[Rfam]
RNA sequence: AUGAUGCAAGGGAAUGAAGUUCUCCCUUAGUGAAUGAUAUUGGAACAUAAAAUAACCAAACACUAGAACCGCUUAAUGCUGAUGACUUCUGCUAUAAA
Number, nucleotide and partner (000 for none) at each position: 001a000002u000003g000004a000005u000006g000007c000008a000009a000010g026011g025012g024013a023014a000015u000016g089017a088018a087019g086020u085021u084022c000023u013024c012025c011026c010027u000028u000029a000030g000031u000032g000033a000034a000035u000036g000037a000038u000039a000040u000041u000042g000043g000044a000045a000046c000047a000048u000049a000050a000051a000052a000053u000054a000055a000056c000057c000058a000059a000060a000061c000062a000063c000064u000065a000066g000067a000068a000069c000070c000071g079072c078073u000074u000075a000076a000077u000078g072079c071080u000081g000082a000083u000084g021085a020086c019087u018088u017089c016090u000091g000092c000093u000094a000095u000096a000097a000098a000

Fluoride riboswitch aptamer (crcB RNA motif): a 98-nucleotide RNA sequence from Clostridiales bacterium CHKCI001. The source organism's lineage runs through Bacteria, Bacillati, Bacillota, Clostridia and Eubacteriales.